[Rfam]
RNA sequence: UAAUCUGUUUUAAGGCAGAUCCUCUUCUAGUUGUAAUAGAUUAAAACUUAGUUACUUAAAAUUACUUGUUAUCACAAACCUGACUACAUCAUAAACACUCAUAAAACAUAUUUGAAAGAAAAAAUUCAUAAAAUUAUAAU
Number, nucleotide and partner (000 for none) at each position: 001u000002a000003a000004u138005c000006u136007g135008u133009u132010u000011u000012a129013a000014g000015g127016c000017a000018g000019a000020u122021c000022c000023u000024c000025u118026u117027c000028u114029a113030g112031u000032u110033g000034u000035a000036a000037u000038a000039g000040a000041u000042u000043a000044a000045a000046a000047c000048u000049u000050a000051g000052u000053u000054a000055c000056u000057u000058a000059a000060a000061a000062u000063u000064a000065c000066u000067u000068g000069u000070u000071a000072u000073c000074a000075c000076a000077a000078a000079c000080c000081u000082g000083a000084c000085u000086a000087c000088a000089u000090c000091a000092u000093a000094a000095a000096c000097a000098c000099u000100c000101a000102u000103a000104a000105a000106a000107c000108a000109u000110a032111u000112u030113u029114g028115a000116a000117a026118g025119a000120a000121a000122a020123a000124a000125u000126u000127c015128a000129u012130a000131a000132a009133a008134u000135u007136a006137u000138a004139a000140u000

Rfam assigns this 140-nucleotide RNA from Populus alba to the family "MIR480 microRNA precursor family". A search with the family's covariance model found it, with a score of 69 bits. Lineage of the source: Eukaryota > Magnoliopsida > Pentapetalae > fabids > Populus. The literature on the family includes a 2005 paper in Plant Cell by Lu et al., "Novel and mechanical stress-responsive MicroRNAs in Populus trichocarpa that are absent from Arabidopsis". Rfam links the family to the GO terms RISC complex and miRNA-mediated post-transcriptional gene silencing.